RNA sequence: GUGAUUUCGUUUUGAUUUAGAAUUCCUACGCUUUACCUUUAUGCAUUCAUCAGUCGAUGAAAAAGUUAUGGCAAAGCGUUUGGAUUCUGAAACAAAAUAAAU
Numbered sequence: 001g002u003g004a005u006u007u008c009g010u011u012u013u014g015a016u017u018u019a020g021a022a023u024u025c026c027u028a029c030g031c032u033u034u035a036c037c038u039u040u041a042u043g044c045a046u047u048c049a050u051c052a053g054u055c056g057a058u059g060a061a062a063a064a065g066u067u068a069u070g071g072c073a074a075a076g077c078g079u080u081u082g083g084a085u086u087c088u089g090a091a092a093c094a095a096a097a098u099a100a101a102u
Base pairs, nucleotide, nucleotide: 010096011095012094014093016091017090018089019088020087021086023084024083025082028079029078030077031076032075033074034073036071037070